[Rfam]
A member of the RNA family "PyrR binding site" from Paenibacillus lutimineralis, 113 nucleotides long. Taxonomically the source falls in Paenibacillus (Bacteria, Bacilli, Caryophanales, Paenibacillaceae). It is annotated as a cis-regulatory element. Pairs were carried over by alignment from the consensus structure, which is taken from published work.
RNA sequence: UUUUCCUUUAAAACGGUCCAGAGAGGCUGAAAAGGGGUACUUGAUGUUAUAAGAUUAAUAAUAUCUAUGUAUUUACAUGCCCUUUUGUCCUCUGUGACGGAAGGGCUUUUUAU
Numbered sequence: 001u002u003u004u005c006c007u008u009u010a011a012a013a014c015g016g017u018c019c020a021g022a023g024a025g026g027c028u029g030a031a032a033a034g035g036g037g038u039a040c041u042u043g044a045u046g047u048u049a050u051a052a053g054a055u056u057a058a059u060a061a062u063a064u065c066u067a068u069g070u071a072u073u074u075a076c077a078u079g080c081c082c083u084u085u086u087g088u089c090c091u092c093u094g095u096g097a098c099g100g101a102a103g104g105g106c107u108u109u110u111u112a113u
Stems, first nucleotide, its partner, number of pairs: 003037007014029005044074001046072002053065003077108001079106011